[Rfam]
RNA sequence: AUACAGUGAUGACUGCAUAGUUCAGCAGAAUAUCCUGUGAUGAACAAAUGCUUCGCCCCUAUCUGAUGUAUCU
Numbered sequence: 001a002u003a004c005a006g007u008g009a010u011g012a013c014u015g016c017a018u019a020g021u022u023c024a025g026c027a028g029a030a031u032a033u034c035c036u037g038u039g040a041u042g043a044a045c046a047a048a049u050g051c052u053u054c055g056c057c058c059c060u061a062u063c064u065g066a067u068g069u070a071u072c073u
Base pairs, nucleotide, nucleotide: 001071002070003069004068006041007040009038010037013028014027015026016025046060
This 73-nucleotide RNA from Zonotrichia albicollis belongs to the Rfam family "Small nucleolar RNA SNORD77". Rfam links the family to the GO terms nucleolus and RNA processing. Rfam describes the family as follows. U77 belongs to the C/D family of snoRNAs. On this family, see Tycowski et al., Curr Biol 2004: "Guide RNAs with 5' caps and novel box C/D snoRNA-like domains for modification of snRNAs in metazoa". The base pairs follow the family's consensus structure, which was predicted with RNAalifold. By type it is a C/D-box small nucleolar RNA. Rfam 15.1 lists 396 matches to the family in 167 species. Taxonomically the source falls in Zonotrichia (Eukaryota, Sauropsida, Archelosauria, Saurischia).